[Rfam]
Nucleotides: 117
Base pairs, nucleotide, nucleotide: 004037005036006035007034008033014031015030016029017028018027019026042073045070046069047068048067049066051064052063053062055060074112075111076110077109078108079107080106081105082104083103084102085101086100
Number, partner (000 for none) and nucleotide at each position: 001000u002000a003000a004037a005036c006035c007034u008033u009000u010000a011000a012000a013000c014031a015030u016029a017028g018027u019026c020000c021000a022000g023000a024000g025000a026019g027018g028017c029016u030015a031014u032000c033008a034007a035006g036005g037004u038000g039000a040000c041000a042073a043000a044000u045070u046069g047068u048067a049066c050000g051064g052063a053062u054000a055060u056000u057000u058000g059000g060055g061000g062053a063052u064051u065000a066049g067048u068047a069046u070045a071000u072000c073042u074112a075111a076110a077109a078108c079107c080106u081105c082104u083103u084102u085101u086100g087000u088000c089000a090000c091000c092000u093000u094000g095000u096000g097000u098000g099000c100086c101085a102084a103083a104082a105081g106080a107079g108078g109077u110076u111075u112074u113000u114000u115000u116000g117000u